[Rfam]
RNA sequence: UGGAGAAGGGGAGCACGUGCAAAGCCAACAGAGAUCCCACGUGCCAAACUCGAGAAGUUGCACGUGCCCUGCUUCUCCAAC
Numbered sequence: 001u002g003g004a005g006a007a008g009g010g011g012a013g014c015a016c017g018u019g020c021a022a023a024g025c026c027a028a029c030a031g032a033g034a035u036c037c038c039a040c041g042u043g044c045c046a047a048a049c050u051c052g053a054g055a056a057g058u059u060g061c062a063c064g065u066g067c068c069c070u071g072c073u074u075c076u077c078c079a080a081c
Stems, first nucleotide, its partner, number of pairs: 001079008010070002013067010

MIR164 microRNA precursor family: an 81-nucleotide RNA from Phtheirospermum japonicum. A search with the family's covariance model found it, with a score of 66 bits. Its family is annotated with RISC complex and miRNA-mediated post-transcriptional gene silencing in the Gene Ontology. The literature on the family includes a 2002 paper in Genes Dev by Reinhart et al., "MicroRNAs in plants". The family has 2 seed sequences and 201 matches in Rfam 15.1.